The family of this 70-nucleotide sequence from Caenorhabditis remanei is "bZIP non canonical Hac1/Xbp1 intron". Taxonomically the source falls in Caenorhabditis (Eukaryota, Opisthokonta, Metazoa, Peloderinae). About the family: bZIP intron RNA is a non-canonical intron that was first reported in HAC1 gene in yeast and XBP1 gene in Metazoa. The sequence is in the family's curated seed alignment. For this family Rfam cites "Conserved RNA structures in the non-canonical Hac1/Xbp1 intron" (Hooks and Griffiths-Jones, RNA Biol, 2011).
RNA sequence: UGAGCAAUGCGCCUUUGAAUCAGCUGUAUUCAUUAAUGCACCCCUGCCGUGGGACAAGGCCAACCGCUCA
Number, nucleotide and partner (000 for none) at each position: 001u070002g069003a068004g067005c066006a000007a000008u000009g061010c000011g060012c059013c058014u000015u000016u032017g031018a030019a029020u028021c000022a000023g000024c000025u000026g000027u000028a020029u019030u018031c017032a016033u000034u000035a000036a000037u000038g000039c000040a000041c053042c052043c051044c000045u000046g000047c000048c000049g000050u000051g043052g042053g041054a000055c000056a000057a000058g013059g012060c011061c009062a000063a000064c000065c000066g005067c004068u003069c002070a001